[Rfam]
Nucleotides: 437
Stems, first nucleotide, its partner, number of pairs: 004167003008163008016153005059115005073107009090145006096138003175349002178346004204331004209326004222317004227312002234307005255280005261275004282294004361429001363427002365424001367422005385415002388412001393408004
Number, partner (000 for none) and nucleotide at each position: 001000u002000c003000a004167g005166u006165g007000g008163g009162a010161a011160c012159g013158g014157a015156g016153g017152u018151c019150u020149c021000u022000g023000u024000u025000a026000a027000g028000c029000u030000a031000a032000c033000c034000c035000u036000a037000a038000u039000a040000c041000a042000c043000u044000g045000g046000c047000u048000u049000c050000a051000g052000g053000g054000c055000g056000a057000u058000g059115g060114c061113u062112c063111u064000u065000c066000g067000c068000g069000g070000a071000g072000g073107u074106g075105c076104c077103u078102g079101u080100u081099g082000u083000u084000u085000u086000a087000u088000u089000u090145g091144c092143u093142g094141a095140u096138u097137u098136u099081c100080a101079g102078c103077g104076g105075g106074c107073a108000c109000g110000g111063a112062g113061a114060g115059c116000a117000a118000g119000a120000g121000u122000a123000g124000g125000c126000g127000c128000g129000g130000a131000c132000u133000a134000a135000a136098a137097a138096a139000c140095a141094u142093c143092a144091g145090c146000u147000g148000g149020g150019a151018g152017a153016c154000u155000c156015c157014u158013c159012c160011g161010u162009u163008c164000g165006c166005a167004c168000a169000g170000c171000c172000c173000u174000a175349c176348c177000u178346g179345c180344c181343c182000c183000a184000u185000g186000u187000a188000u189000u190000g191000c192000c193000g194000g195000a196000g197000u198000g199000c200000c201000c202000c203000g204331g205330g206329c207328u208000u209326u210325c211324c212323c213000u214000g215000g216000g217000a218000g219000a220000u221000g222317c223316g224315c225314c226000u227312g228311g229000c230000g231000c232000u233000c234307c235306c236305c237304g238303g239000u240000c241000c242000g243000u244000c245000c246000g247000u248000a249000u250000g251000g252000g253000g254000c255280c256279g257278c258277g259276g260000u261275c262274a263273g264272c265000a266000u267000c268000a269000u270000c271000u272264g273263c274262u275261g276259u277258c278257g279256c280255g281000a282294a283293g284292a285291g286000u287000u288000c289000g290000u291285c292284u293283c294282u295000g296000u297000c298000a299000g300000c301000c302000c303238u304237u305236g306235g307234g308000a309000g310000c311228c312227c313000u314225g315224g316223u317222g318000u319000g320000g321000g322000g323212g324211g325210g326209a327000c328207a329206g330205u331204c332000c333000g334000g335000g336000u337000g338000u339000g340000g341000g342000g343181g344180g345179g346178u347000c348176g349175g350000g351000a352000g353000a354000a355000u356000a357000a358000a359000a360000g361429g362000a363427g364426g365424c366000g367422c368421g369420c370419u371418g372000g373000u374000g375000c376000g377000c378000a379000g380000g381000c382000g383000c384000a385415g386414c387000a388412u389000g390000c391000u392000u393408u394407c395406c396405c397000u398000g399000a400000g401000c402000u403000g404000u405396g406395g407394g408393a409000u410000g411000u412388g413000c414386g415385u416000g417000u418371c419370a420369g421368c422367g423000a424365g425000g426364c427363c428000c429361c430000c431000g432000a433000c434000a435000u436000u437000c